About this RNA
This 244-nucleotide RNA from Periconia macrospinosa belongs to the Rfam family "U2 spliceosomal RNA". The organism belongs to Periconia, within Eukaryota. Rfam classes the family as a spliceosomal small nuclear RNA. The base pairs follow the family's consensus structure, which is taken from published work. Gene Ontology terms of the family: mRNA branch site recognition, pre-mRNA branch point binding and U2 snRNP. The family is grouped with related families in Rfam's "U2 clan". U2 is a small nuclear RNA (snRNA) component of the spliceosome (involved in pre-mRNA splicing). Complementary binding between U2 snRNA (in an area lying towards the 5' end but 3' to hairpin I) and the branchpoint sequence (BPS) of the intron results the bulging out of an unpaired adenosine, on the BPS, which initiates a nucleophilic attack at the intronic 5' splice site, thus starting the first of two transesterification reactions that mediate splicing.
RNA sequence: UUAGCUCUCUUUGCCUUUUGGCUUAGAUCAAGUGUAGUAUCUGUUCUUUUUAGUGUGAGUUUUUCCUCCCCUCCUCUUGUUUAGUAUCGUUACUGACAGCGUGUAGUUAAUAGCUAAAACGUCACUACGGUGACUUUUCUAUUAUCCUUCUUUUUGCAACCGGUCUUAUGGUCACUGGGCUUGCUCAAACCCUAAGACACAGUGUCGUUGCCGCCAGCACUACAGGCUCCUGACGCGAACAAUA
Numbered sequence: 001u002u003a004g005c006u007c008u009c010u011u012u013g014c015c016u017u018u019u020g021g022c023u024u025a026g027a028u029c030a031a032g033u034g035u036a037g038u039a040u041c042u043g044u045u046c047u048u049u050u051u052a053g054u055g056u057g058a059g060u061u062u063u064u065c066c067u068c069c070c071c072u073c074c075u076c077u078u079g080u081u082u083a084g085u086a087u088c089g090u091u092a093c094u095g096a097c098a099g100c101g102u103g104u105a106g107u108u109a110a111u112a113g114c115u116a117a118a119a120c121g122u123c124a125c126u127a128c129g130g131u132g133a134c135u136u137u138u139c140u141a142u143u144a145u146c147c148u149u150c151u152u153u154u155u156g157c158a159a160c161c162g163g164u165c166u167u168a169u170g171g172u173c174a175c176u177g178g179g180c181u182u183g184c185u186c187a188a189a190c191c192c193u194a195a196g197a198c199a200c201a202g203u204g205u206c207g208u209u210g211c212c213g214c215c216a217g218c219a220c221u222a223c224a225g226g227c228u229c230c231u232g233a234c235g236c237g238a239a240c241a242a243u244a
Stems, first nucleotide, its partner, number of pairs: 008027003013022003048119006121134005163198006170191001176187004202236005210227003